[Rfam]
RNA sequence: UGUACCGUGAGGUACAGGCGAGAGGAAGCAAUAGCGAAACCGUGGCUCGACGGACAGAAACCUGAUAUUAAGGCGCAUUGAGCGGAUUAGAUGGCCACAGGCAUCAAAGUCCAAAAGGCAACCGUAACCUCAAUGCGUAAAUCAGGCGAGUAAACGGGGAAAGGUUCGGGGC
Numbered sequence: 001u002g003u004a005c006c007g008u009g010a011g012g013u014a015c016a017g018g019c020g021a022g023a024g025g026a027a028g029c030a031a032u033a034g035c036g037a038a039a040c041c042g043u044g045g046c047u048c049g050a051c052g053g054a055c056a057g058a059a060a061c062c063u064g065a066u067a068u069u070a071a072g073g074c075g076c077a078u079u080g081a082g083c084g085g086a087u088u089a090g091a092u093g094g095c096c097a098c099a100g101g102c103a104u105c106a107a108a109g110u111c112c113a114a115a116a117g118g119c120a121a122c123c124g125u126a127a128c129c130u131c132a133a134u135g136c137g138u139a140a141a142u143c144a145g146g147c148g149a150g151u152a153a154a155c156g157g158g159g160a161a162a163g164g165u166u167c168g169g170g171g172c
Base pairs, nucleotide, nucleotide: 001016002015003014004013005012006011028172029171032168035163040157041156042155043154045151046150047149048148049147061146062145063144064143065142066141073138074137075136077134078133079132080131081130082129084112085111086110087109090105091104092103093102
A member of the RNA family "Group II catalytic intron D1-D4-3" from Ruminococcaceae bacterium YRB3002, 172 nucleotides long. For this family Rfam cites "Group II introns: structure and catalytic versatility of large natural ribozymes" (Lehmann and Schmidt, Crit Rev Biochem Mol Biol, 2003). Pairs were carried over by alignment from the consensus structure.